[Rfam]
RNA sequence: AACUUAUCAAGAGUGGUGGAGGGACUGGCCCAAUGAAGCCCGGCAACCGGCCAAGUGAUGGCGGCGGUGCCAACUCCUGCAGGAAAGAGUUCCUGAGAGAUAAGGG
Numbered sequence: 001a002a003c004u005u006a007u008c009a010a011g012a013g014u015g016g017u018g019g020a021g022g023g024a025c026u027g028g029c030c031c032a033a034u035g036a037a038g039c040c041c042g043g044c045a046a047c048c049g050g051c052c053a054a055g056u057g058a059u060g061g062c063g064g065c066g067g068u069g070c071c072a073a074c075u076c077c078u079g080c081a082g083g084a085a086a087g088a089g090u091u092c093c094u095g096a097g098a099g100a101u102a103a104g105g106g
Base pairs, nucleotide, nucleotide: 003104004103005102006101007100008099013041015040016039017038021031022030023029025079027077028076042071043070044069045068047067048066050062051061052060075098080095081094082093083092084091085090
Rfam assigns this 106-nucleotide sequence from Desulforamulus profundi to the family "SAM riboswitch aptamer (S box leader)". A reference for the family is Lu et al. (2010), "SAM recognition and conformational switching mechanism in the Bacillus subtilis yitJ S box/SAM-I riboswitch", J Mol Biol. The organism belongs to Desulforamulus, within Bacteria.